Rfam assigns this 100-nucleotide sequence from Pseudomonas sp. HLS-6 to the family "Pseudomonas rnk leader". Its family is annotated with regulation of gene expression in the Gene Ontology. On this family, see Naville and Gautheret, Genome Biol 2010: "Premature terminator analysis sheds light on a hidden world of bacterial transcriptional attenuation".
[Rfam]
RNA sequence: CUCCCCUCUUGUGUAUUUGCCGGGCUGUGGUAGUGUCGAACGUAUAUCGGCACUGCCGAAUUCCUGAAAACCCCGCCCUUGGGCGGGGUUUUUCUUUAUA
Dot-bracket structure: ((..............((((((.....))))))...............))................(((((((((((....)))))))))))........